[Rfam]
RNA: Purine riboswitch aptamer
Organism: Planomicrobium sp. YIM 101495
RNA sequence: CAUUCAAAAACUUCAUACACUCAUAUAAUCGCGGGGAUAUGGCCUGCAAGUUUCUACCGGUUUGCCGAAAACAAACUGACUAUGAGCAGCAACGAGACGACA
Numbered sequence: 001c002a003u004u005c006a007a008a009a010a011c012u013u014c015a016u017a018c019a020c021u022c023a024u025a026u027a028a029u030c031g032c033g034g035g036g037a038u039a040u041g042g043c044c045u046g047c048a049a050g051u052u053u054c055u056a057c058c059g060g061u062u063u064g065c066c067g068a069a070a071a072c073a074a075a076c077u078g079a080c081u082a083u084g085a086g087c088a089g090c091a092a093c094g095a096g097a098c099g100a101c102a
Base pairs, nucleotide, nucleotide: 020086021085022084023083024082025081029049031047032046033045034044035043058078059077060076061075062074063073064072